[Rfam]
RNA sequence: AGCCCGGCUCCAGAACCAUAGCAGAAACAUUCACACCAUGGCUUCUGUCAGAUUGCCAUGAAUCUGUGAAUUUUUCU
Numbered sequence: 001a002g003c004c005c006g007g008c009u010c011c012a013g014a015a016c017c018a019u020a021g022c023a024g025a026a027a028c029a030u031u032c033a034c035a036c037c038a039u040g041g042c043u044u045c046u047g048u049c050a051g052a053u054u055g056c057c058a059u060g061a062a063u064c065u066g067u068g069a070a071u072u073u074u075u076c077u
Base pairs, nucleotide, nucleotide: 013045014044015043016041017040020077021076023074024073025072026071027039049066050065051064052063053062054061
Shown here is a 77-nucleotide RNA from Geotrypetes seraphini, a member of the family "Mammalian CPEB3 ribozyme". The match comes from Rfam's covariance-model search (39 bits). Pairs were carried over by alignment from the consensus structure, which is taken from published work.